[Rfam]
RNA sequence: AUAAAAUUAAUAUGUUUCACUCAUAUAAUCGCGGGAAUAUGGCUCGCAAGUUUCUACCAGAUUGCCGAAAACAAUCUGACUAUGAGUGGGUAAUGCAAAGUC
Numbered sequence: 001a002u003a004a005a006a007u008u009a010a011u012a013u014g015u016u017u018c019a020c021u022c023a024u025a026u027a028a029u030c031g032c033g034g035g036a037a038u039a040u041g042g043c044u045c046g047c048a049a050g051u052u053u054c055u056a057c058c059a060g061a062u063u064g065c066c067g068a069a070a071a072c073a074a075u076c077u078g079a080c081u082a083u084g085a086g087u088g089g090g091u092a093a094u095g096c097a098a099a100g101u102c
Stems, first nucleotide, its partner, number of pairs: 018088008029049001031047005058078007
Purine riboswitch aptamer: a 102-nucleotide RNA sequence from Neobacillus thermocopriae. Rfam links the family to the GO term purine nucleobase biosynthetic process. Riboswitches are metabolite binding domains within certain messenger RNAs that serve as precision sensors for their corresponding targets.